Record summary:
6S / SsrS RNA: a 177-nucleotide RNA from Acidaminobacter hydrogenoformans. Rfam's curators write: E. coli 6S RNA was the first non coding RNA to be sequenced, but its function was unknown until recently. It consists of 184 nucleotides that fold into an extended hairpin structure with a large single-stranded internal bulge. The 6S RNA specifically associates with RNA polymerase holoenzyme containing the sigma70 specificity factor. This interaction represses expression from a sigma70-dependent promoter during stationary phase. 6S RNA homologs have recently been identified in most bacterial genomes. It scores 70 bits against the family's covariance model. Pairs were carried over by alignment from the consensus structure, which is taken from published work.
RNA sequence: AGUACUCUGGGGUGUGCGUUAUACGGAUUAAAUUCAACCACUGGCAUAUUAUCGGGAGCACGCGUUUUUCGAGCGAUGGCAAGCCGGCCCGACCGGAAGUCAGGACUCGGGAACAGUACACCCACUUAGGUGGAGUGUGGUGCUGAAUUUCAUCCUCGACGGCACUCUGGAGACAUC
Numbered sequence: 001a002g003u004a005c006u007c008u009g010g011g012g013u014g015u016g017c018g019u020u021a022u023a024c025g026g027a028u029u030a031a032a033u034u035c036a037a038c039c040a041c042u043g044g045c046a047u048a049u050u051a052u053c054g055g056g057a058g059c060a061c062g063c064g065u066u067u068u069u070c071g072a073g074c075g076a077u078g079g080c081a082a083g084c085c086g087g088c089c090c091g092a093c094c095g096g097a098a099g100u101c102a103g104g105a106c107u108c109g110g111g112a113a114c115a116g117u118a119c120a121c122c123c124a125c126u127u128a129g130g131u132g133g134a135g136u137g138u139g140g141u142g143c144u145g146a147a148u149u150u151c152a153u154c155c156u157c158g159a160c161g162g163c164a165c166u167c168u169g170g171a172g173a174c175a176u177c
Stems, first nucleotide, its partner, number of pairs: 005172011017161003032148005037141003054123003058119001060117002065113001067112007079100002084096004